[Rfam]
RNA sequence: CGAUGAGGUAGAGGUUGCGGUUGUUAAGAGUACAUUCGCGGAGGCAGGAAGAAGCCAAUGAUUCGAAUGGGAAGGAACAACCGCCGAAGUUCGUGUAACCCGCUUCCGGGACGCGUGCUGGGGUCGCUGUCGAAUAGGCACGACACUGUCAUACGCAGAUUACCCGUCUACGCAUGAUGCGCUAUCUUUAAG
Numbered sequence: 001c002g003a004u005g006a007g008g009u010a011g012a013g014g015u016u017g018c019g020g021u022u023g024u025u026a027a028g029a030g031u032a033c034a035u036u037c038g039c040g041g042a043g044g045c046a047g048g049a050a051g052a053a054g055c056c057a058a059u060g061a062u063u064c065g066a067a068u069g070g071g072a073a074g075g076a077a078c079a080a081c082c083g084c085c086g087a088a089g090u091u092c093g094u095g096u097a098a099c100c101c102g103c104u105u106c107c108g109g110g111a112c113g114c115g116u117g118c119u120g121g122g123g124u125c126g127c128u129g130u131c132g133a134a135u136a137g138g139c140a141c142g143a144c145a146c147u148g149u150c151a152u153a154c155g156c157a158g159a160u161u162a163c164c165c166g167u168c169u170a171c172g173c174a175u176g177a178u179g180c181g182c183u184a185u186c187u188u189u190a191a192g
Base pairs, nucleotide, nucleotide: 006187007186008185009184010183011182017084018083019082020081021080022079023078024077025076033069034068035067036066037065038064040062088119089118090117092115093114094113095112096111099108120147121146123144124143125142126141128140129139130138131137149177150176151175152174154172155171